Rfam assigns this 154-nucleotide RNA sequence from Streptomyces tardus to the family "c-di-AMP riboswitch aptamer (ydaO/yuaA leader)".
RNA sequence: CGGACUGCUCCGCCGAGUCCGGCCCAGCCGGAGCCGGGGACCCACCUGAGCACCACCGGGGUGAAUCGGGCGCAGGCGCGAGCCGAGCCCGUAGGGCAGCCUUCCGACGCCCGAACCCGACAGCUAACCCGGUAGGCGGUCCACGGAAGGAGUU
Dot-bracket structure: ..........((((...(((.........)))((((((....(..............)(((.....((((.................))))..((((...........))))...))).........)))))).))))................